Shown here is a 45-nucleotide sequence, a member of the family "L31-Actinobacteria ribosomal protein leader". It is one of the family's seed sequences. The family's consensus secondary structure is taken from published work. By type it is a cis-regulatory leader.
RNA sequence: UCGGUUCCGGUUCACGUUCACACCGUGUGGACGACCCGGGGCACC
Number, nucleotide and partner (000 for none) at each position: 001u000002c000003g045004g044005u043006u000007c039008c038009g037010g036011u000012u000013c000014a000015c033016g032017u031018u030019c029020a028021c027022a026023c000024c000025g000026u022027g021028u020029g019030g018031a017032c016033g015034a000035c000036c010037c009038g008039g007040g000041g000042c000043a005044c004045c003